[Rfam]
RNA sequence: GCCGAGCGCAGUGGCGCGCGCCUGUAGUCCCAGCUGCCGGGGAGGCUGAGCCCGACGGAUUGCUUGAGCCCAGGAGUUCUGGGCUGCCAUGCGCUGUGCUGAGCAGGCGUCCAAGCUAAGGCCGCCAUCAGUAUAGUGACCCGCGGGGAGCUGCGGGACACCAGGUCGCCUAAGGAGGGGUGAACUGGCCCAGGUCAGGGACGGAGCAGGUUAAAGCUCCUGUGGCGGUCAAUAGCGGAAUCACACCUGUGAAUAGCCACACCAACGCAGCCUGAGCAAUAUAGAGACACGUGGGCUCCC
Numbered sequence: 001g002c003c004g005a006g007c008g009c010a011g012u013g014g015c016g017c018g019c020g021c022c023u024g025u026a027g028u029c030c031c032a033g034c035u036g037c038c039g040g041g042g043a044g045g046c047u048g049a050g051c052c053c054g055a056c057g058g059a060u061u062g063c064u065u066g067a068g069c070c071c072a073g074g075a076g077u078u079c080u081g082g083g084c085u086g087c088c089a090u091g092c093g094c095u096g097u098g099c100u101g102a103g104c105a106g107g108c109g110u111c112c113a114a115g116c117u118a119a120g121g122c123c124g125c126c127a128u129c130a131g132u133a134u135a136g137u138g139a140c141c142c143g144c145g146g147g148g149a150g151c152u153g154c155g156g157g158a159c160a161c162c163a164g165g166u167c168g169c170c171u172a173a174g175g176a177g178g179g180g181u182g183a184a185c186u187g188g189c190c191c192a193g194g195u196c197a198g199g200g201a202c203g204g205a206g207c208a209g210g211u212u213a214a215a216g217c218u219c220c221u222g223u224g225g226c227g228g229u230c231a232a233u234a235g236c237g238g239a240a241u242c243a244c245a246c247c248u249g250u251g252a253a254u255a256g257c258c259a260c261a262c263c264a265a266c267g268c269a270g271c272c273u274g275a276g277c278a279a280u281a282u283a284g285a286g287a288c289a290c291g292u293g294g295g296c297u298c299c300c
Base pairs, nucleotide, nucleotide: 001046002045003044004023006021007020008019009018028043029042030041048298049297050296051295052294053293054292060287061286063284064283068277069276071274072273073272074271079270080269081268083266085264086263090259091258093257094256095255096254097253099251103250104249105248106247107246109244110243112238115236116235117234118233120230121229122228123227124226125225126224127223128222129168131166132165134163136161137160138159140157141156142155143154144153145152146151169175170174176221177220178219179218180217181216186213187212188211189210190209195204196203
Background:
The record is a 300-nucleotide RNA sequence from Leptocoma aspasia, which matches "Metazoan signal recognition particle RNA" in Rfam. It scores 197 bits against the family's covariance model. The base pairs follow the family's consensus structure, which is taken from published work. Clan: SRP clan. It is annotated as a non-coding RNA gene. The signal recognition particle (SRP) is a universally conserved ribonucleoprotein. It is involved in the co-translational targeting of proteins to membranes. NCBI's taxonomy places the organism under Eukaryota, Opisthokonta, Eumetazoa, Sauria, Leptocoma.